This 337-nucleotide RNA from Roseivirga ehrenbergii belongs to the Rfam family "Bacterial RNase P class A". About the family: Ribonuclease P (RNase P) is a ubiquitous endoribonuclease, found in archaea, bacteria and eukarya as well as chloroplasts and mitochondria. Gene Ontology terms of the family: ribonuclease P activity, tRNA processing and dimeric ribonuclease P complex. The source organism's lineage runs through Bacteria, Cytophagia, Cytophagales, Roseivirgaceae and Roseivirga.

RNA sequence: GAUACAAGCCACCUUAUCGCUGCGACUAGAGUAAUCGAAAUCGGAGAGGAAAGUCCGGGCACCAUAGGGAAGCAUAGCGGCUAACGGCCGUCACUUCAAAUUCGAUUCUUCGGGUUUGGAGUAGGACAAGUGCAACAGAAAGUAUGUACAGGUAAUGCUGUAGUGAAACCAGGUAAACUCUAUGCGGUGAAAUGUCACAUAUACCUGCUUUUGAGGGUUCCCGCCCAAUGCAGGAGGGUAGGCAGAUGGACCCCGCCAGUAAUGACGGGGCUAGAUAAAUGAUAAGGGCCUUGACCUAGUUAAGGAACAGAACCCGGCUUAUCGGCUUGUAUCUUUU
Numbered sequence: 001g002a003u004a005c006a007a008g009c010c011a012c013c014u015u016a017u018c019g020c021u022g023c024g025a026c027u028a029g030a031g032u033a034a035u036c037g038a039a040a041u042c043g044g045a046g047a048g049g050a051a052a053g054u055c056c057g058g059g060c061a062c063c064a065u066a067g068g069g070a071a072g073c074a075u076a077g078c079g080g081c082u083a084a085c086g087g088c089c090g091u092c093a094c095u096u097c098a099a100a101u102u103c104g105a106u107u108c109u110u111c112g113g114g115u116u117u118g119g120a121g122u123a124g125g126a127c128a129a130g131u132g133c134a135a136c137a138g139a140a141a142g143u144a145u146g147u148a149c150a151g152g153u154a155a156u157g158c159u160g161u162a163g164u165g166a167a168a169c170c171a172g173g174u175a176a177a178c179u180c181u182a183u184g185c186g187g188u189g190a191a192a193u194g195u196c197a198c199a200u201a202u203a204c205c206u207g208c209u210u211u212u213g214a215g216g217g218u219u220c221c222c223g224c225c226c227a228a229u230g231c232a233g234g235a236g237g238g239u240a241g242g243c244a245g246a247u248g249g250a251c252c253c254c255g256c257c258a259g260u261a262a263u264g265a266c267g268g269g270g271c272u273a274g275a276u277a278a279a280u281g282a283u284a285a286g287g288g289c290c291u292u293g294a295c296c297u298a299g300u301u302a303a304g305g306a307a308c309a310g311a312a313c314c315c316g317g318c319u320u321a322u323c324g325g326c327u328u329g330u331a332u333c334u335u336u337u
Stems, first nucleotide, its partner, number of pairs: 001333010011322001012287007020046002023043003027039001051320003055317005060189004067222004072185005077091005092124001093122013125180002130178002132174002147162005193244004204234005215226004251270005257264002
Dot-bracket structure: ((((((((((((((((((.((.(((.(...........).))).))....[[[.[[[[[((((...[[[[.((((((((((.....)))))((((((((((((((....))))))))))))).)((...((((.............(((((......)))))..........))..)))))))))))))...((((.......(((((......((((]]]]))))...)))))......))))......(((((.((....)).)))))..........))))))).........................]]]]]]]].).))))))))))....